Small nucleolar RNA SNORA40: a 125-nucleotide RNA.
The family has 28 seed sequences and 2,550 matches in Rfam 15.1.
Rfam links the family to the GO terms nucleolus and RNA processing.
Rfam's curators put it in the seed alignment.

RNA sequence: AGCACUUGUAUGGGUUUUUGUUGAACUAGUGGGCAAAAACUGGAAAACAAGUGCAAGAACAAAUCCUCUUUUGCAACCCAGAACUCAUUGUUGUAUGAGUUUUGGUACAUGUAAGAAGGAAUAUC
Numbered sequence: 001a002g003c004a005c006u007u008g009u010a011u012g013g014g015u016u017u018u019u020g021u022u023g024a025a026c027u028a029g030u031g032g033g034c035a036a037a038a039a040c041u042g043g044a045a046a047a048c049a050a051g052u053g054c055a056a057g058a059a060c061a062a063a064u065c066c067u068c069u070u071u072u073g074c075a076a077c078c079c080a081g082a083a084c085u086c087a088u089u090g091u092u093g094u095a096u097g098a099g100u101u102u103u104g105g106u107a108c109a110u111g112u113a114a115g116a117a118g119g120a121a122u123a124u125c
Stems, first nucleotide, its partner, number of pairs: 002054008011045001014040008026031001063122002066119002069116005079104010